[Rfam]
RNA sequence: AUCUUAUCAAGAGCGGUGGAGGGAUUUGGCCCUAUGAUGCCCGACAACCAACAUUUCAUUUAAUGUAUGGUGUUAAUUCCAACAGAUUAUUCUGAAAGAUAAGAA
Numbered sequence: 001a002u003c004u005u006a007u008c009a010a011g012a013g014c015g016g017u018g019g020a021g022g023g024a025u026u027u028g029g030c031c032c033u034a035u036g037a038u039g040c041c042c043g044a045c046a047a048c049c050a051a052c053a054u055u056u057c058a059u060u061u062a063a064u065g066u067a068u069g070g071u072g073u074u075a076a077u078u079c080c081a082a083c084a085g086a087u088u089a090u091u092c093u094g095a096a097a098g099a100u101a102a103g104a105a
Stems, first nucleotide, its partner, number of pairs: 002104007013042001015041003021032003026082004043074004048070002051066004078097001083094004

SAM riboswitch aptamer (S box leader): a 105-nucleotide sequence from Clostridium luticellarii. The family's consensus secondary structure is taken from published work. Gene Ontology term of the family: regulation of gene expression.